RNA sequence: UAAACGAUGUGUGACUGGCGUAAACAUGGAGCAUAACCAUGAGGGAGCGCAUCGUUCAUAGGCCGUACGCCUGGGCAAGCGUU
Numbered sequence: 001u002a003a004a005c006g007a008u009g010u011g012u013g014a015c016u017g018g019c020g021u022a023a024a025c026a027u028g029g030a031g032c033a034u035a036a037c038c039a040u041g042a043g044g045g046a047g048c049g050c051a052u053c054g055u056u057c058a059u060a061g062g063c064c065g066u067a068c069g070c071c072u073g074g075g076c077a078a079g080c081g082u083u
Base pairs, nucleotide, nucleotide: 003056004055005054006053007052008051009050010049011048012047015044016043017071018070019069020068021067026040027039028038029037062076063075064074
The family of this 83-nucleotide sequence from Paenibacillus sedimenti is "ZMP/ZTP riboswitch aptamer (pfl RNA motif)". It scores 61 bits against the family's covariance model. Gene Ontology terms of the family: regulation of purine nucleotide biosynthetic process and one-carbon metabolic process.